[Rfam]
RNA sequence: CCCGGCAUGUUCCUGCCGGUCCCUACGCGGGCAUGCUUGCCACGCGCUGUGUGGUUGGUGUGAAGCCCCGCGGACAAUGUACCGAACUGGGUUCAAAUGGUGACAGGCGAACCCCUCGGGGAACCCUCCCCCGUUAAGGGC
Numbered sequence: 001c002c003c004g005g006c007a008u009g010u011u012c013c014u015g016c017c018g019g020u021c022c023c024u025a026c027g028c029g030g031g032c033a034u035g036c037u038u039g040c041c042a043c044g045c046g047c048u049g050u051g052u053g054g055u056u057g058g059u060g061u062g063a064a065g066c067c068c069c070g071c072g073g074a075c076a077a078u079g080u081a082c083c084g085a086a087c088u089g090g091g092u093u094c095a096a097a098u099g100g101u102g103a104c105a106g107g108c109g110a111a112c113c114c115c116u117c118g119g120g121g122a123a124c125c126c127u128c129c130c131c132c133g134u135u136a137a138g139g140g141c
Stems, first nucleotide, its partner, number of pairs: 002019006027071005032062006039055005089114004098105002117133005
The family of this 141-nucleotide RNA sequence from Olavius sp. associated proteobacterium Delta 1 is "Group II catalytic intron D1-D4-7". The organism belongs to Deltaproteobacteria, within Bacteria. A reference for the family is Bonen and Vogel (2001), "The ins and outs of group II introns", Trends Genet. About the family: Group II introns are found in rRNA, tRNA and mRNA of organelles in fungi, plants and protists, and also in mRNA in bacteria. A search with the family's covariance model found it, with a score of 78 bits. The family has 244 seed sequences and 1,296 matches in Rfam 15.1.